[Rfam]
RNA: Bacterial RNase P class A
Nucleotides: 403
Base pairs, nucleotide, nucleotide: 001399002398003397004396005395006394007393008392009391010390011388012336013335014334015333016332017331018330020048021047023045024044025043026042027041028040029039030038053386054385055384057383058382059381060380061379062211063210064209065208069270070269071268072267074207075206076205077204078203079093080092081091082090083089094108095106096105097104098103109202110201114200115199116196117195131184132183133182134181135180136178137177138176139175215293216292217291218290225283226282227281228280229279230278262274263273264272265271300319301318302317303316304315305314306313307312
Number, partner (000 for none) and nucleotide at each position: 001399g002398g003397g004396g005395u006394c007393u008392u009391a010390c011388a012336g013335a014334u015333g016332a017331u018330c019000g020048c021047u022000g023045c024044u025043g026042a027041u028040a029039g030038a031000g032000u033000u034000c035000u036000g037000c038030u039029c040028u041027g042026u043025c044024a045023g046000g047021a048020g049000a050000g051000g052000a053386a054385a055384g056000u057383c058382c059381g060380g061379g062211c063210u064209u065208c066000g067000c068000a069270g070269a071268g072267c073000a074207a075206c076205a077204c078203a079093g080092g081091g082090g083089g084000u085000a086000a087000c088000g089083c090082c091081c092080c093079u094108c095106c096105g097104u098103c099000g100000u101000a102000a103098g104097g105096c106095g107000a108094g109202g110201a111000a112000c113000a114200g115199u116196g117195g118000a119000a120000c121000a122000g123000a124000a125000a126000g127000a128000a129000u130000g131184u132183c133182c134181g135180g136178a137177g138176c139175u140000a141000u142000g143000a144000u145000c146000u147000c148000g149000a150000g151000g152000u153000u154000g155000g156000g157000a158000a159000c160000g161000g162000g163000a164000g165000a166000c167000c168000u169000u170000g171000a172000g173000g174000g175139a176138g177137u178136u179000g180135c181134c182133g183132g184131a185000g186000u187000g188000a189000a190000a191000a192000c193000a194000g195117c196116c197000a198000a199115a200114c201110u202109c203078u204077g205076u206075g207074u208065g209064a210063a211062g212000c213000a214000a215293g216292a217291u218290c219000a220000a221000a222000u223000a224000g225283g226282g227281a228280a229279g230278c231000g232000c233000c234000a235000a236000c237000a238000c239000u240000c241000a242000g243000c244000u245000u246000g247000c248000u249000g250000a251000g252000g253000a254000g255000u256000u257000g258000a259000a260000a261000a262274g263273a264272a265271c266000g267072g268071c269070u270069c271265g272264u273263u274262c275000g276000a277000g278230g279229c280228u281227u282226c283225c284000g285000g286000g287000u288000c289000a290218g291217a292216u293215c294000g295000c296000u297000c298000g299000a300319g301318c302317c303316a304315a305314c306313a307312g308000g309000u310000a311000a312307c313306u314305g315304u316303u317302g318301g319300c320000c321000u322000a323000g324000a325000g326000g327000a328000a329000u330018g331017g332016u333015c334014g335013u336012c337000g338000a339000a340000u341000c342000g343000c344000a345000u346000g347000a348000g349000g350000g351000a352000u353000c354000g355000u356000g357000g358000u359000a360000a361000c362000c363000a364000a365000u366000g367000c368000g369000a370000g371000g372000a373000a374000c375000a376000g377000a378000a379061c380060c381059c382058g383057g384055c385054u386053u387000a388011u389000c390010g391009u392008a393007a394006g395005a396004c397003c398002c399001c400000g401000c402000c403000a